[Rfam]
RNA sequence: GGCGAUCCGUUGGGGUGCUGAAAGGCUGAGAGGUGCUAAAGGCGCCAACCCAUCGAACCUGAUCCGGAUAAUGCCGGCGAAGGGAACGGUCAUCGGCAUGUC
Dot-bracket structure: ......((((((((..(((....)))......(((((...)))))...)))).....(((...((((......))))...)))..)))).............

The family of this 102-nucleotide RNA from Allobosea sp. AAP35 is "TPP riboswitch aptamer (THI element)". The family's consensus secondary structure is taken from published work. It scores 71 bits against the family's covariance model. Taxonomically the source falls in Allobosea (Bacteria, Pseudomonadati, Pseudomonadota, Hyphomicrobiales).